[Rfam]
Rfam assigns this 129-nucleotide RNA from Mus spicilegus to the family "Small nucleolar RNA SNORA17". The family's consensus secondary structure was predicted with RNAalifold. Clan: SNORA17 clan. The literature on the family includes a 1997 paper in J Mol Biol by Ofengand and Bakin, "Mapping to nucleotide resolution of pseudouridine residues in large subunit ribosomal RNAs from representative eukaryotes, prokaryotes, archaebacteria, mitochondria and chloroplasts". snoRNA ACA 17 belongs to the H/ACA family of snoRNAs and is predicted to guide pseudouridylation of the 28S rRNA at positions U4659 and U4598. It shares the same host gene together with ACA43. NB This family has a high threshold value to exclude a large number of closely related sequences that do not appear to have conserved H and ACA boxes, and may be pseudogenes.
RNA sequence: CCUGCCCCUGGAAGCACUGAGGGUGUGGCUGCUGUGACACAUGCUCAUCAGUGAUGGCACAGAGGAGAGGCUAUGUCUACACUCAGUGUUCUGACCUAUGAACAUCUGAAUGAUCAGUAGUCUAAUAUU
Numbered sequence: 001c002c003u004g005c006c007c008c009u010g011g012a013a014g015c016a017c018u019g020a021g022g023g024u025g026u027g028g029c030u031g032c033u034g035u036g037a038c039a040c041a042u043g044c045u046c047a048u049c050a051g052u053g054a055u056g057g058c059a060c061a062g063a064g065g066a067g068a069g070g071c072u073a074u075g076u077c078u079a080c081a082c083u084c085a086g087u088g089u090u091c092u093g094a095c096c097u098a099u100g101a102a103c104a105u106c107u108g109a110a111u112g113a114u115c116a117g118u119a120g121u122c123u124a125a126u127a128u129u
Stems, first nucleotide, its partner, number of pairs: 003059004008053001010052001014048001019046003024041004029036001068123007080112002083109004087104005